Rfam assigns this 70-nucleotide RNA sequence from Rosa chinensis to the family "Small nucleolar RNA Z105". The literature on the family includes a 2003 paper in Nucleic Acids Res by Chen et al., "The high diversity of snoRNAs in plants: identification and comparative study of 120 snoRNA genes from Oryza sativa". Rfam 15.1 lists 621 matches to the family in 204 species.
RNA sequence: GCAGCAUAAUGAGGAUUGUAUUUGUCCGACUAAUUCAUGAACGGAUUACAUAACCUCCUACUCAUUCUGA
Numbered sequence: 001g002c003a004g005c006a007u008a009a010u011g012a013g014g015a016u017u018g019u020a021u022u023u024g025u026c027c028g029a030c031u032a033a034u035u036c037a038u039g040a041a042c043g044g045a046u047u048a049c050a051u052a053a054c055c056u057c058c059u060a061c062u063c064a065u066u067c068u069g070a
Stems, first nucleotide, its partner, number of pairs: 006065002009062001027044001030039001
Gene Ontology terms of the family: nucleolus and RNA processing. Lineage of the source: Eukaryota > Streptophyta > Streptophytina > rosids > Rosa.